[Rfam]
RNA: Plastid-clpP 5UTR RNA
Organism: Punica granatum
RNA sequence: CUUUUGGUUCGUAGGAACAAAGAGAAGCAGAUCUAUUCUAUAUCCGAUAAGUCCCAAUACGCAAUGGGG
Numbered sequence: 001c002u003u004u005u006g007g008u009u010c011g012u013a014g015g016a017a018c019a020a021a022g023a024g025a026a027g028c029a030g031a032u033c034u035a036u037u038c039u040a041u042a043u044c045c046g047a048u049a050a051g052u053c054c055c056a057a058u059a060c061g062c063a064a065u066g067g068g069g
Stems, first nucleotide, its partner, number of pairs: 003022002007018004043068003051060002